[Rfam]
RNA sequence: UUAUAAAUUGGCCUUCUCUUCCCGGUUCUCCCGGAGUUGAGAAAAGCUGGGUUGAGAGGGCAAAAAAAAGAAAAA
Numbered sequence: 001u002u003a004u005a006a007a008u009u010g011g012c013c014u015u016c017u018c019u020u021c022c023c024g025g026u027u028c029u030c031c032c033g034g035a036g037u038u039g040a041g042a043a044a045a046g047c048u049g050g051g052u053u054g055a056g057a058g059g060g061c062a063a064a065a066a067a068a069a070g071a072a073a074a075a
Stems, first nucleotide, its partner, number of pairs: 014058005021051005029042002032039002